[Rfam]
RNA sequence: GGCCACCUUCGGGGGGCUUACAUAGCGGACCGUGACCAUUCGGGUUGGGUUCGCACAGCUAAACGGAAGACAGAAA
Dot-bracket structure: ((((.(((...)))))))......((((((..................))))))......................
Numbered sequence: 001g002g003c004c005a006c007c008u009u010c011g012g013g014g015g016g017c018u019u020a021c022a023u024a025g026c027g028g029a030c031c032g033u034g035a036c037c038a039u040u041c042g043g044g045u046u047g048g049g050u051u052c053g054c055a056c057a058g059c060u061a062a063a064c065g066g067a068a069g070a071c072a073g074a075a076a
Stems, first nucleotide, its partner, number of pairs: 001018004006014003025054006
The family of this 76-nucleotide RNA from Halocynthiibacter namhaensis is "L2-Alphaproteobacteria ribosomal protein leader". For this family Rfam cites "Discovery of 20 novel ribosomal leader candidates in bacteria and archaea" (Eckert and Weinberg, BMC Microbiol, 2020). Pairs were carried over by alignment from the consensus structure, which is taken from published work. The organism belongs to Halocynthiibacter, within Bacteria.